[Rfam]
RNA sequence: GACUUAAUUUAUCGAGCGAGCUUAAGCAGUUAUGUGUAUGCGUAGGGAAACCGAGUCUUAAUAGGGCGUUAGUUCGAUGGAUUAGACCCGAAACCAGGUGAUCUAGCUAUGAGCAGGUUGAAGGUGCGGUAACACGCACUGGAGGACCGAACCCACGCCUGUUGAAAAAGGCGGGGAUGACUUGUUGCUAGGGGUGAAAGGCCAAUCAAACCUGGAGAUAGCUGGUU
Numbered sequence: 001g002a003c004u005u006a007a008u009u010u011a012u013c014g015a016g017c018g019a020g021c022u023u024a025a026g027c028a029g030u031u032a033u034g035u036g037u038a039u040g041c042g043u044a045g046g047g048a049a050a051c052c053g054a055g056u057c058u059u060a061a062u063a064g065g066g067c068g069u070u071a072g073u074u075c076g077a078u079g080g081a082u083u084a085g086a087c088c089c090g091a092a093a094c095c096a097g098g099u100g101a102u103c104u105a106g107c108u109a110u111g112a113g114c115a116g117g118u119u120g121a122a123g124g125u126g127c128g129g130u131a132a133c134a135c136g137c138a139c140u141g142g143a144g145g146a147c148c149g150a151a152c153c154c155a156c157g158c159c160u161g162u163u164g165a166a167a168a169a170g171g172c173g174g175g176g177a178u179g180a181c182u183u184g185u186u187g188c189u190a191g192g193g194g195u196g197a198a199a200g201g202c203c204a205a206u207c208a209a210a211c212c213u214g215g216a217g218a219u220a221g222c223u224g225g226u227u
Base pairs, nucleotide, nucleotide: 005084006083007082008081009080010079011078012077013076014075015074016073017072020041021040023038026035027034028033045052046051055067056066057065058064087225088224090222094215095214096213097212098211099210103191104190105189106188107187109185110184111183112182113181114179116148117147118146119145123140124139125138126137127136128135152176153175154174156173157172158171159170160169193203194202195201
RNA: Bacterial large subunit ribosomal RNA, nucleotides 565 to 791
Organism: Cohaesibacter gelatinilyticus